[Rfam]
RNA sequence: ACUUACCUGUAUGUGGAUGGUGUUCAGCACCAGGGACAGAAGUGUUUACCUGUGUACGGAUGGUGUUUAGCACUAAGGACAGGUGUGUUACCUG
Numbered sequence: 001a002c003u004u005a006c007c008u009g010u011a012u013g014u015g016g017a018u019g020g021u022g023u024u025c026a027g028c029a030c031c032a033g034g035g036a037c038a039g040a041a042g043u044g045u046u047u048a049c050c051u052g053u054g055u056a057c058g059g060a061u062g063g064u065g066u067u068u069a070g071c072a073c074u075a076a077g078g079a080c081a082g083g084u085g086u087g088u089u090a091c092c093u094g
Base pairs, nucleotide, nucleotide: 004085005084006083007082008081009080010079018075019074020073021072022071023070024069026067027066028065029064030063031062032061034055036053037052038051039050042047

Shown here is a 94-nucleotide RNA from Branchiostoma floridae, a member of the family "mir-2060 microRNA precursor family".
Its family is annotated with miRNA-mediated post-transcriptional gene silencing and RISC complex in the Gene Ontology.
NCBI's taxonomy places the organism under Eukaryota, Opisthokonta, Chordata, Cephalochordata, Branchiostoma.